This 87-nucleotide sequence from Alkalicoccus daliensis belongs to the Rfam family "pan motif". Pairs were carried over by alignment from the consensus structure, which is taken from published work. Lineage of the source: Bacteria > Bacillati > Bacilli > Bacillaceae > Alkalicoccus.
RNA sequence: UGGACAGUAUCUGUCAUAAGAACUGUACCUCUAUAAAAUUUUUUAAAAUCGAAACUGCCUUGAUCCAAUCUGGACAGGGACAGAAGG
Numbered sequence: 001u002g003g004a005c006a007g008u009a010u011c012u013g014u015c016a017u018a019a020g021a022a023c024u025g026u027a028c029c030u031c032u033a034u035a036a037a038a039u040u041u042u043u044u045a046a047a048a049u050c051g052a053a054a055c056u057g058c059c060u061u062g063a064u065c066c067a068a069u070c071u072g073g074a075c076a077g078g079g080a081c082a083g084a085a086g087g
Stems, first nucleotide, its partner, number of pairs: 002029002004026005010021002055083003058079005064074003